[Rfam]
RNA sequence: GCAGUCUGAGGGAAAGUUGCUUUUAGUACGAGAGGAACAAGGCAACGGCGCCGCUAGUCUAACGGUCGUCCGACAGGGCGGGCCGUGCAGCCACGCGCUAAGUUGUAAGGGCUGAAAGCAUCUAAGCCCGAAAAACACCCUGAAACGAGACUGCCACCGAGUGCCAGUAGAAGACUGGUUUGAUAGAGUUGGGGCGUACGCACCAAGGCAACGAGGUGCUCAACCCGCAACCACUAAACACUCGACCC
Numbered sequence: 001g002c003a004g005u006c007u008g009a010g011g012g013a014a015a016g017u018u019g020c021u022u023u024u025a026g027u028a029c030g031a032g033a034g035g036a037a038c039a040a041g042g043c044a045a046c047g048g049c050g051c052c053g054c055u056a057g058u059c060u061a062a063c064g065g066u067c068g069u070c071c072g073a074c075a076g077g078g079c080g081g082g083c084c085g086u087g088c089a090g091c092c093a094c095g096c097g098c099u100a101a102g103u104u105g106u107a108a109g110g111g112c113u114g115a116a117a118g119c120a121u122c123u124a125a126g127c128c129c130g131a132a133a134a135a136c137a138c139c140c141u142g143a144a145a146c147g148a149g150a151c152u153g154c155c156a157c158c159g160a161g162u163g164c165c166a167g168u169a170g171a172a173g174a175c176u177g178g179u180u181u182g183a184u185a186g187a188g189u190u191g192g193g194g195c196g197u198a199c200g201c202a203c204c205a206a207g208g209c210a211a212c213g214a215g216g217u218g219c220u221c222a223a224c225c226c227g228c229a230a231c232c233a234c235u236a237a238a239c240a241c242u243c244g245a246c247c248c
Base pairs, nucleotide, nucleotide: 001154002153003152004151005150006149007148010141011140012139016046017045018044019043020042021041022040023039047099048098049097050096051095055093057091062086063085064084065083066082067080068079069078070077071076102136103135104134109129110128111127112126113125159243160242161241162240163179164178165177166176167175184236185235186234188231189230190229191228192226193225194224200219201218202217203216204215207212

A member of the RNA family "Archaeal large subunit ribosomal RNA" from Methanocella paludicola, 248 nucleotides of a longer RNA. The base pairs follow the family's consensus structure, which is taken from published work. NCBI's taxonomy places the organism under Archaea, Methanobacteriota, Methanomicrobia, Methanocellales, Methanocella paludicola. It is one of the family's seed sequences.